[Rfam]
RNA: SAM riboswitch aptamer (S box leader)
Organism: Lentibacillus amyloliquefaciens
Nucleotides: 099
Base pairs, nucleotide, nucleotide: 002098003097004096005095006094007093008092013042014041015040016039017038021031022030023029025073026072027071028070043065044064045063046062048061049060051056069091074088075087076086077085079083
Number, partner (000 for none) and nucleotide at each position: 001000a002098c003097c004096u005095u006094a007093u008092c009000a010000a011000g012000a013042g014041a015040g016039g017038u018000g019000g020000a021031g022030g023029g024000a025073a026072g027071g028070g029023c030022c031021c032000u033000u034000u035000g036000a037000a038017a039016c040015c041014u042013c043065g044064g045063c046062a047000g048061c049060g050000g051056a052000c053000g054000a055000u056051u057000a058000a059000c060049u061048g062046u063045g064044c065043c066000a067000a068000a069091u070028c071027c072026c073025u074088c075087a076086g077085g078000g079083u080000a081000a082000c083079a084000g085077c086076c087075u088074g089000g090000a091069a092008g093007a094006u095005g096004a097003g098002g099000a